[Rfam]
Nucleotides: 075
Stems, first nucleotide, its partner, number of pairs: 003071005009026007029072001035062002
Number, partner (000 for none) and nucleotide at each position: 001000a002000u003071c004070g005069u006068u007067g008000g009026c010025c011024g012023g013022u014021g015020c016000g017000c018000c019000c020015g021014u022013g023012c024011c025010g026009g027000c028000g029072g030000a031000a032000g033000u034000a035062g036061g037000u038000g039000a040000a041000g042000g043000c044000c045000c046000c047000u048000c049000u050000g051000g052000g053000g054000u055000c056000c057000c058000u059000c060000c061036c062035c063000g064000a065000a066000g067007c068006a069005a070004c071003g072029c073000g074000c075000c